[Rfam]
The family of this 95-nucleotide RNA sequence from Centaurea solstitialis is "Small nucleolar RNA R72". From the family's description: snoR72 is a C/D box small nucleolar RNA, which acts as a methylation guide for 25S ribosomal RNA in Arabidopsis. By type it is a C/D-box small nucleolar RNA. The literature on the family includes a 2003 paper in Nucleic Acids Res by Chen et al., "The high diversity of snoRNAs in plants: identification and comparative study of 120 snoRNA genes from Oryza sativa".
RNA sequence: UUGCAAAUGAUGAGCAUUUUCACUAAAAUUGGAUAAUGAGAAGCUCACGUAGUGGGCGAUGUUUGUUUCCUAAUACUUCCAUGACUCUGAUGCAC
Numbered sequence: 001u002u003g004c005a006a007a008u009g010a011u012g013a014g015c016a017u018u019u020u021c022a023c024u025a026a027a028a029u030u031g032g033a034u035a036a037u038g039a040g041a042a043g044c045u046c047a048c049g050u051a052g053u054g055g056g057c058g059a060u061g062u063u064u065g066u067u068u069c070c071u072a073a074u075a076c077u078u079c080c081a082u083g084a085c086u087c088u089g090a091u092g093c094a095c
Stems, first nucleotide, its partner, number of pairs: 002094004043057004
Overview:
Gene Ontology terms of the family: RNA processing and nucleolus. Lineage of the source: Eukaryota > Tracheophyta > Euphyllophyta > Spermatophyta > Centaurea.